[Rfam]
RNA: mir-544 microRNA precursor family
Organism: Pan troglodytes
RNA sequence: AUUGCCUGGGGAGUUGUUAAAAUGCAGAGUCUGAUUCAGCAGGUCUGGGCCAGGGGCCCAAGAUUCUGCAUUUCUAACCAGCUCCCAGGUGAUGUCAA
Number, nucleotide and partner (000 for none) at each position: 001a000002u000003u091004g090005c089006c000007u000008g000009g085010g084011g083012a000013g000014u080015u000016g078017u077018u076019a075020a073021a072022a071023u000024g069025c068026a067027g066028a065029g000030u063031c062032u061033g000034a000035u000036u000037c000038a000039g000040c000041a000042g000043g000044u000045c000046u000047g000048g000049g000050c000051c000052a000053g000054g000055g000056g000057c000058c000059c000060a000061a032062g031063a030064u000065u028066c027067u026068g025069c024070a000071u022072u021073u020074c000075u019076a018077a017078c016079c000080a014081g000082c000083u011084c010085c009086c000087a000088g000089g005090u004091g003092a000093u000094g000095u000096c000097a000098a000